Shown here is a 110-nucleotide RNA from Anaerolinea thermolimosa, a member of the family "TPP riboswitch aptamer (THI element)". NCBI's taxonomy places the organism under Bacteria, Chloroflexota, Anaerolineae, Anaerolineaceae, Anaerolinea. The match comes from Rfam's covariance-model search (71 bits).
RNA sequence: AACAAUUCAACGGGGAGCCCGUAGGACGGGCUGAGAGGAGGGUAGCUACCCUCGACCCGCAGAACCUGAUCCGGGUAAUGCCGGCGGAGGGAAAACAGCCAGACCUUUUA
Number, nucleotide and partner (000 for none) at each position: 001a000002a000003c000004a000005a000006u098007u097008c000009a000010a000011c059012g058013g057014g056015g000016a000017g031018c030019c029020c028021g027022u000023a000024g000025g000026a000027c021028g020029g019030g018031c017032u000033g000034a000035g000036a000037g000038g053039a052040g051041g050042g049043u000044a000045g000046c000047u000048a000049c042050c041051c040052u039053c038054g000055a000056c014057c013058c012059g011060c000061a000062g000063a000064a000065c090066c089067u088068g000069a000070u000071c084072c083073g082074g081075g000076u000077a000078a000079u000080g000081c074082c073083g072084g071085c000086g000087g000088a067089g066090g065091g000092a000093a000094a000095a000096c000097a007098g006099c000100c000101a000102g000103a000104c000105c000106u000107u000108u000109u000110a000